[Rfam]
RNA: tRNA
Organism: Methanococcus vannielii
RNA sequence: GGGCCCGUAGCUCAGUUGGGAGAGCGCUGCCCUUGCAAGGCAGAGGCCGUGGGUUCAAAUCCCGCCGGGUCCA
Numbered sequence: 001g002g003g004c005c006c007g008u009a010g011c012u013c014a015g016u017u018g019g020g021a022g023a024g025c026g027c028u029g030c031c032c033u034u035g036c037a038a039g040g041c042a043g044a045g046g047c048c049g050u051g052g053g054u055u056c057a058a059a060u061c062c063c064g065c066c067g068g069g070u071c072c073a
Stems, first nucleotide, its partner, number of pairs: 001072007010025004027043005049065005